[Rfam]
RNA sequence: UCACAAGUUCGAGGCCACAGCAUAAGCCCUCACAGCACCGCCUGUCAGAUUCCAGUGAAUUUGCAAAUUCAGCU
Numbered sequence: 001u002c003a004c005a006a007g008u009u010c011g012a013g014g015c016c017a018c019a020g021c022a023u024a025a026g027c028c029c030u031c032a033c034a035g036c037a038c039c040g041c042c043u044g045u046c047a048g049a050u051u052c053c054a055g056u057g058a059a060u061u062u063g064c065a066a067a068u069u070c071a072g073c074u
Base pairs, nucleotide, nucleotide: 013042014041015040019074020073021072024069025068026036027035046063047062048061049060050059051058052057